[Rfam]
RNA: Betaproteobacteria toxic small RNA
RNA sequence: UGUCUCCUCCACCCCUCCUCGAUUGGUGGAUUGGGCCCCGGGUCUCACGACGCGGGGCCUUUUUU
Numbered sequence: 001u002g003u004c005u006c007c008u009c010c011a012c013c014c015c016u017c018c019u020c021g022a023u024u025g026g027u028g029g030a031u032u033g034g035g036c037c038c039c040g041g042g043u044c045u046c047a048c049g050a051c052g053c054g055g056g057g058c059c060u061u062u063u064u065u
Stems, first nucleotide, its partner, number of pairs: 008030006035058006042051001